[Rfam]
RNA sequence: CCACCUACAGCGCCGAGCUCCAUCCGAUAGGCGGGGACACCGUAAGGAUGGAGGCGGGGGACCCACCGGUCCACCGUGAUCGGACCGGAGCCGGAAACGGCUCCUUGGGGUGAAGCCGGCGUCGGAACACGGCGCCGGCCGGGUAGCCUCUCCCACCCGAACCCGACAGCUGACCUCGCAGGCGCACCGAGAGAGGAAUU
Numbered sequence: 001c002c003a004c005c006u007a008c009a010g011c012g013c014c015g016a017g018c019u020c021c022a023u024c025c026g027a028u029a030g031g032c033g034g035g036g037a038c039a040c041c042g043u044a045a046g047g048a049u050g051g052a053g054g055c056g057g058g059g060g061a062c063c064c065a066c067c068g069g070u071c072c073a074c075c076g077u078g079a080u081c082g083g084a085c086c087g088g089a090g091c092c093g094g095a096a097a098c099g100g101c102u103c104c105u106u107g108g109g110g111u112g113a114a115g116c117c118g119g120c121g122u123c124g125g126a127a128c129a130c131g132g133c134g135c136c137g138g139c140c141g142g143g144u145a146g147c148c149u150c151u152c153c154c155a156c157c158c159g160a161a162c163c164c165g166a167c168a169g170c171u172g173a174c175c176u177c178g179c180a181g182g183c184g185c186a187c188c189g190a191g192a193g194a195g196g197a198a199u200u
Stems, first nucleotide, its partner, number of pairs: 011184004018053008054179006064107002108164003116138009141158004
Description: The record is a 200-nucleotide RNA from Mycobacterium conspicuum, which matches "c-di-AMP riboswitch aptamer (ydaO/yuaA leader)" in Rfam. About the family: This family represents a conserved RNA structure found upstream of the ydaO and yuaA genes in Bacillus subtilis and related genes in other bacteria. A search with the family's covariance model found it, with a score of 69 bits. Taxonomically the source falls in Mycobacterium (Bacteria, Bacillati, Mycobacteriales, Mycobacteriaceae).